Rfam assigns this 81-nucleotide RNA from Clostridium pasteurianum to the family "pan motif".
By type it is a cis-regulatory element.
The source organism's lineage runs through Bacteria, Eubacteriales, Clostridiaceae, Clostridium and Clostridium pasteurianum.

RNA sequence: CGGGUAGUAUCUUAAAGAACUGCACCAAAAGUGUUAUUAAUUUUAAACUUUCUGCUCAUAUCCUCUGAAUGAGACAGCUAA
Numbered sequence: 001c002g003g004g005u006a007g008u009a010u011c012u013u014a015a016a017g018a019a020c021u022g023c024a025c026c027a028a029a030a031g032u033g034u035u036a037u038u039a040a041u042u043u044u045a046a047a048c049u050u051u052c053u054g055c056u057c058a059u060a061u062c063c064u065c066u067g068a069a070u071g072a073g074a075c076a077g078c079u080a081a
Stems, first nucleotide, its partner, number of pairs: 002026002004023005010018002052077003055073005061068002